[Rfam]
RNA sequence: AAACGUUCUCAGGGCGGGGUGGAAGUCCCCACCGGCGGUAAUGGCAGUCUUCUUGCCUAGUCCGCGAGCGCUUGCAGGAAACGGCUUGAGUGGUCGACUUACCGUUACCGCAAGAUCAGCAGACCCGGUGUGAUCCCGGGACCGACGGUUAUAGUCCGGAUCCAUAGUGGGCGCUA
Dot-bracket structure: ...(((((.(......(((.......))).[[((((((.....................[[))))..((.................................................))...(((((.......)))))]])).(((.....]])))........).)))))...
Shown here is a 176-nucleotide RNA sequence from Noviherbaspirillum galbum, a member of the family "FMN riboswitch aptamer (RFN element)". About the family: The RFN element is a highly conserved domain that is found frequently in the 5'-untranslated regions of prokaryotic mRNAs that encode for flavin mononucleotide (FMN) biosynthesis and transport proteins. This element is a metabolite-dependent riboswitch that directly binds FMN in the absence of proteins. It scores 89 bits against the family's covariance model.